Source information:
This 105-nucleotide sequence from Sedimentibacter hydroxybenzoicus belongs to the Rfam family "TPP riboswitch aptamer (THI element)". Vitamin B(1) in its active form thiamin pyrophosphate (TPP) is an essential coenzyme that is synthesised by coupling of pyrimidine and thiazole moieties in bacteria. Pairs were carried over by alignment from the consensus structure, which is taken from published work.

RNA sequence: UAAUUAAAUAUCGGGAGCUUAUUAAUAGGCUGAGAGGAAACUGUUAGUUUCGACCGAACCUGAUUUGGAUAAUGCCAACGUAGGGAACUGUUUGUGAAAAUGAAU
Dot-bracket structure: .....(((((((((..(((((....)))))......(((((.....)))))..)))).((((..((((......))))..))))....)))))............